[Rfam]
RNA: msiK RNA
Nucleotides: 059
Base pairs, nucleotide, nucleotide: 010052011051012050013049014048015047016046028045029044030043031042032041033040
Number, partner (000 for none) and nucleotide at each position: 001000g002000g003000u004000c005000g006000u007000c008000g009000g010052u011051u012050u013049u014048c015047c016046a017000c018000a019000a020000c021000g022000g023000a024000u025000c026000g027000u028045c029044g030043g031042g032041c033040a034000c035000g036000u037000a038000c039000c040033u041032g042031c043030c044029c045028g046016u047015g048014g049013a050012a051011a052010g053000g054000a055000u056000u057000a058000a059000c